This 75-nucleotide RNA from Enterobacteriaceae bacterium strain FGI 57 belongs to the Rfam family "Repression of heat shock gene expression (ROSE) element". From the family's description: This family represents a 5' UTR cis-regulatory element found in heat shock mRNAs and is known as the ROSE (repression of heat shock gene expression) element. The ROSE element is a negative regulator of heat shock gene expression. The secondary structure is thought to be regulated by temperature. This regulation blocks access to the ribosome binding site under normal conditions. By type it is an RNA thermoregulator. Pairs were carried over by alignment from the consensus structure, which is taken from published work.
[Rfam]
RNA sequence: UCGGGUAUCACCGCCUGUCCAUGAUGGAAGGCCGUAAAAAUUCUCGCUGAUUUCAGGAGCUAUUGAUUAUGCGUA
Numbered sequence: 001u002c003g004g005g006u007a008u009c010a011c012c013g014c015c016u017g018u019c020c021a022u023g024a025u026g027g028a029a030g031g032c033c034g035u036a037a038a039a040a041u042u043c044u045c046g047c048u049g050a051u052u053u054c055a056g057g058a059g060c061u062a063u064u065g066a067u068u069a070u071g072c073g074u075a
Base pairs, nucleotide, nucleotide: 013032014031015030016029018028019027020026040064043059044058045057047056048055049054